The family of this 112-nucleotide RNA sequence from Oryza punctata is "Small nucleolar RNA Z107/R87". By type it is a C/D-box small nucleolar RNA. Gene Ontology terms of the family: nucleolus and RNA processing.
RNA sequence: GGUGGCUAUGACGACUAGGUAAAAUUCAAGCUCAACAGACCAAAUCACAGGUCUCCCUCCAAGGCCUUUGGAGAUGGAUCUGUAUGCCGAGUUUCCGCUCAGCCGAGCCAUC
Numbered sequence: 001g002g003u004g005g006c007u008a009u010g011a012c013g014a015c016u017a018g019g020u021a022a023a024a025u026u027c028a029a030g031c032u033c034a035a036c037a038g039a040c041c042a043a044a045u046c047a048c049a050g051g052u053c054u055c056c057c058u059c060c061a062a063g064g065c066c067u068u069u070g071g072a073g074a075u076g077g078a079u080c081u082g083u084a085u086g087c088c089g090a091g092u093u094u095c096c097g098c099u100c101a102g103c104c105g106a107g108c109c110a111u112c
Stems, first nucleotide, its partner, number of pairs: 001112006
Dot-bracket structure: ((((((....................................................................................................))))))
Lineage of the source: Eukaryota > Petrosaviidae > Oryzoideae > Oryzinae > Oryza. For this family Rfam cites "The high diversity of snoRNAs in plants: identification and comparative study of 120 snoRNA genes from Oryza sativa" (Chen et al., Nucleic Acids Res, 2003).